[Rfam]
RNA sequence: GUUUCAGACGAGUUCUUGUUGGACUGAAGU
Numbered sequence: 001g002u003u004u005c006a007g008a009c010g011a012g013u014u015c016u017u018g019u020u021g022g023a024c025u026g027a028a029g030u
Stems, first nucleotide, its partner, number of pairs: 011025005
CRISPR RNA direct repeat element: a 30-nucleotide sequence. The base pairs follow the family's consensus structure, which was predicted with WAR. Rfam links the family to the GO term defense response.